[Rfam]
RNA sequence: UCGAAGUUCCAACAAAUGGAUAACACUUGGUCUUAGUGUAUAGGAGUUUUUGAAAAUAGAAUAGAUAAAUAUAAGGAGCAAUAACCCCUCUUGAUAAAACAAGAAAGAGUUAAUUGCUCCUUAAU
Number, nucleotide and partner (000 for none) at each position: 001u000002c000003g000004a000005a000006g000007u000008u020009c019010c018011a017012a000013c000014a000015a000016a000017u011018g010019g009020a008021u000022a000023a000024c000025a000026c000027u000028u000029g000030g000031u000032c000033u000034u000035a000036g000037u000038g000039u000040a000041u000042a000043g000044g000045a000046g000047u000048u000049u000050u000051u000052g000053a000054a000055a000056a000057u123058a000059g000060a000061a000062u000063a000064g000065a000066u000067a000068a000069a000070u000071a000072u000073a122074a121075g120076g119077a118078g117079c116080a115081a114082u113083a000084a111085c000086c109087c000088c107089u104090c103091u102092u101093g000094a000095u000096a000097a000098a000099a000100c000101a092102a091103g090104a089105a000106a000107g088108a000109g086110u000111u084112a000113a082114u081115u080116g079117c078118u077119c076120c075121u074122u073123a057124a000125u000

Overview
A member of the RNA family "Plastid-psbA-1 3UTR RNA" from Paraleonurus japonicus, 125 nucleotides long. From the family's description: Plastid psbA-1 is a non-coding RNA (ncRNA) present in plastids. It was identified in inverted repeat sequences in the 3 prime untranslate region (3UTR) of photosystem II quinone-binding protein (psbA). The source organism's lineage runs through Eukaryota, Magnoliopsida, Lamiaceae, Lamioideae and Paraleonurus. On this family, see Richter et al., Plant Commun 2023: "Retrograde signaling in plants: A critical review focusing on the GUN pathway and beyond". The base pairs follow the family's consensus structure, which was predicted with LocARNA.